A member of the RNA family "MIR1520 microRNA precursor family" from Glycine soja, 121 nucleotides long.
The family is grouped with related families in Rfam's "MIR1520 microRNA precursor clan".
Rfam links the family to the GO terms RISC complex and miRNA-mediated post-transcriptional gene silencing.
Rfam 15.1 lists 1,934 matches to the family in 15 species.
[Rfam]
Nucleotides: 121
Base pairs, nucleotide, nucleotide: 020110021109022108023107025105026104030100033097034096035095036094038092039091040090
Number, partner (000 for none) and nucleotide at each position: 001000u002000u003000c004000u005000g006000a007000u008000u009000a010000g011000a012000c013000g014000a015000u016000a017000a018000c019000g020110g021109u022108u023107a024000u025105g026104u027000g028000u029000c030100a031000c032000a033097u034096u035095u036094u037000g038092a039091u040090u041000g042000g043000a044000u045000g046000u047000u048000g049000a050000c051000u052000u053000u054000a055000u056000a057000a058000a059000c060000g061000a062000u063000g064000a065000a066000a067000a068000u069000a070000u071000a072000u073000u074000a075000u076000u077000g078000u079000u080000g081000u082000u083000a084000u085000c086000g087000u088000c089000c090040a091039a092038u093000c094036a095035g096034a097033a098000u099000a100030u101000u102000a103000c104026a105025u106000a107023u108022g109021a110020u111000g112000g113000u114000u115000a116000u117000c118000g119000u120000c121000u